[Rfam]
RNA: Small nucleolar RNA SNORA49
RNA sequence: ACCCCUCAGCCUUACUCCGGGGGCUUUUGCCGUAAAGCGCCCCGGCGUUGCCUGAGGGUACAGGAAGAGCACUCAUCCCUCCCCGGGGAGCCUGUCUUCCCUUGGGGCCUGCAGACGGGGCUGACAGC
Number, nucleotide and partner (000 for none) at each position: 001a000002c000003c058004c057005c056006u055007c054008a053009g052010c000011c050012u000013u000014a000015c000016u000017c045018c044019g043020g042021g041022g040023g038024c037025u036026u035027u034028u000029g000030c000031c000032g000033u000034a027035a026036a025037g024038c023039g000040c022041c021042c020043c019044g018045g017046c000047g000048u000049u000050g011051c000052c009053u008054g007055a006056g005057g004058g003059u000060a000061c000062a000063g000064g000065a000066a000067g000068a122069g121070c120071a000072c118073u117074c000075a000076u000077c000078c000079c000080u000081c107082c106083c105084c104085g103086g101087g100088g099089a098090g000091c000092c000093u000094g000095u000096c000097u000098u089099c088100c087101c086102u000103u085104g084105g083106g082107g081108c000109c000110u000111g000112c000113a000114g000115a000116c000117g073118g072119g000120g070121c069122u068123g000124a000125c000126a000127g000128c000